Shown here is a 283-nucleotide RNA sequence from Erinaceus europaeus, a member of the family "Mason-Pfizer monkey virus packaging signal". A reference for the family is Harrison et al. (1995), "Secondary structure model of the Mason-Pfizer monkey virus 5' leader sequence: identification of a structural motif common to a variety of retroviruses", J Virol. Lineage of the source: Eukaryota > Metazoa > Chordata > Theria > Erinaceus. The match comes from Rfam's covariance-model search (65 bits). This family represents a group of sequences that are related to the Mason-Pfizer monkey virus (MPMV) packaging signal. The packaging signal is located in the 5' UTR and is required for specific RNA encapsidation. Gene Ontology term of the family: viral genome packaging. Pairs were carried over by alignment from the consensus structure, which was predicted with PFOLD.
RNA sequence: UGGCGCCCAAACGUGGGGCCCAAGGCACGGGGGAUUCAGUGAGGAACACCGUUCAUCAGAAAAGAGGACUGCAGUCGUUUCAUUAAUCAAGAGGUCACCGUGAACACACCUGGUUCGAAGGAGAGACCUGGAGGGUAAGCAGAUGGCAAUAUCACAGGACAAGAAAUCAGUGCACAAGAAAAGUUUAUUGAGAGUCUUAAAGACUCACUCAAGACGUGAGGAGUAAGGGUUAAGAAAAAAGAUCUUGCUCAUUUUUUCCUUUUCCUUAGAGAUGUUUGCCUUU
Numbered sequence: 001u002g003g004c005g006c007c008c009a010a011a012c013g014u015g016g017g018g019c020c021c022a023a024g025g026c027a028c029g030g031g032g033g034a035u036u037c038a039g040u041g042a043g044g045a046a047c048a049c050c051g052u053u054c055a056u057c058a059g060a061a062a063a064g065a066g067g068a069c070u071g072c073a074g075u076c077g078u079u080u081c082a083u084u085a086a087u088c089a090a091g092a093g094g095u096c097a098c099c100g101u102g103a104a105c106a107c108a109c110c111u112g113g114u115u116c117g118a119a120g121g122a123g124a125g126a127c128c129u130g131g132a133g134g135g136u137a138a139g140c141a142g143a144u145g146g147c148a149a150u151a152u153c154a155c156a157g158g159a160c161a162a163g164a165a166a167u168c169a170g171u172g173c174a175c176a177a178g179a180a181a182a183g184u185u186u187a188u189u190g191a192g193a194g195u196c197u198u199a200a201a202g203a204c205u206c207a208c209u210c211a212a213g214a215c216g217u218g219a220g221g222a223g224u225a226a227g228g229g230u231u232a233a234g235a236a237a238a239a240a241g242a243u244c245u246u247g248c249u250c251a252u253u254u255u256u257u258c259c260u261u262u263u264c265c266u267u268a269g270a271g272a273u274g275u276u277u278g279c280c281u282u283u
Stems, first nucleotide, its partner, number of pairs: 006033003013028003037051001039049002087131003093128002098123001099120001101117005139160001142153004170206001172204001218258006227245005268283004273278001